[Rfam]
Rfam assigns this 76-nucleotide RNA from Callipepla squamata to the family "mir-190 microRNA precursor family". The family is grouped with related families in Rfam's "mir-50 clan". The family has 76 seed sequences and 1,667 matches in Rfam 15.1.
RNA sequence: GGUUCUGUCUGAUAUGUUUGAUAUGAGGUUGUCUGAUGGGAAACCAACUCAAUAUCAAACAUAUUCUCACAGCGCC
Numbered sequence: 001g002g003u004u005c006u007g008u009c010u011g012a013u014a015u016g017u018u019u020g021a022u023a024u025g026a027g028g029u030u031g032u033c034u035g036a037u038g039g040g041a042a043a044c045c046a047a048c049u050c051a052a053u054a055u056c057a058a059a060c061a062u063a064u065u066c067u068c069a070c071a072g073c074g075c076c
Stems, first nucleotide, its partner, number of pairs: 005072004011065014027049005

On this family, see Kloosterman et al., Nucleic Acids Res 2006: "Cloning and expression of new microRNAs from zebrafish".
The base pairs follow the family's consensus structure, which was predicted with RNAalifold.